[Rfam]
RNA sequence: AGAGUCGGCCGGACGGCUGCUGCCCACCUCGGUGGGGGGAGGAAAGUCCGGGCUCCAUAGGGCAGGGUGCCAGGUAACGCCUGGGCGGCGCAAGCCGACGACCAGUGCAACAGAGAGUAGACCGCCGAUGGCCCAUCGCAAGAUGGUGCACAGGUAAGGGUGAAAGGGUGCGGUAAGAGCGCACCGCGCGGCUGGCAACAGUUCGUGGCACGGUAAACUCCACCCGGAGCAAGACCAAAUAGGCCCCCAAUACGCGCGGCCCGCGCGGGGGGCGGGUAGGUUGCUUGAGCCAGUGAGCGAUUGCUGGCCUAGACGAAUGGCCGUUCAAGACAGAACCCGGCUUACAGGCCGGCUCUGCGG
Numbered sequence: 001a002g003a004g005u006c007g008g009c010c011g012g013a014c015g016g017c018u019g020c021u022g023c024c025c026a027c028c029u030c031g032g033u034g035g036g037g038g039g040a041g042g043a044a045a046g047u048c049c050g051g052g053c054u055c056c057a058u059a060g061g062g063c064a065g066g067g068u069g070c071c072a073g074g075u076a077a078c079g080c081c082u083g084g085g086c087g088g089c090g091c092a093a094g095c096c097g098a099c100g101a102c103c104a105g106u107g108c109a110a111c112a113g114a115g116a117g118u119a120g121a122c123c124g125c126c127g128a129u130g131g132c133c134c135a136u137c138g139c140a141a142g143a144u145g146g147u148g149c150a151c152a153g154g155u156a157a158g159g160g161u162g163a164a165a166g167g168g169u170g171c172g173g174u175a176a177g178a179g180c181g182c183a184c185c186g187c188g189c190g191g192c193u194g195g196c197a198a199c200a201g202u203u204c205g206u207g208g209c210a211c212g213g214u215a216a217a218c219u220c221c222a223c224c225c226g227g228a229g230c231a232a233g234a235c236c237a238a239a240u241a242g243g244c245c246c247c248c249a250a251u252a253c254g255c256g257c258g259g260c261c262c263g264c265g266c267g268g269g270g271g272g273c274g275g276g277u278a279g280g281u282u283g284c285u286u287g288a289g290c291c292a293g294u295g296a297g298c299g300a301u302u303g304c305u306g307g308c309c310u311a312g313a314c315g316a317a318u319g320g321c322c323g324u325u326c327a328a329g330a331c332a333g334a335a336c337c338c339g340g341c342u343u344a345c346a347g348g349c350c351g352g353c354u355c356u357g358c359g360g
Stems, first nucleotide, its partner, number of pairs: 001356010011345001012325007020039002023036005044343003048340005053229004060262004065225005070084005085099001086097004100220002105218002107214002122159002124155003129150002167185006186209001187207005192201003233282004243273006253267005289308008